The record is a 54-nucleotide RNA sequence, which matches "chrB-b RNA" in Rfam. It is annotated as a cis-regulatory element. Rfam's curators put it in the seed alignment.

[Rfam]
RNA sequence: UCGGGCCAAAGGCAGUCGCCCGACGACACAGGCGAUCGUUCGCCCAAGCGCUGC
Dot-bracket structure: ((((((.....[[[[[.)))))).......(((((....))))).....]]]]]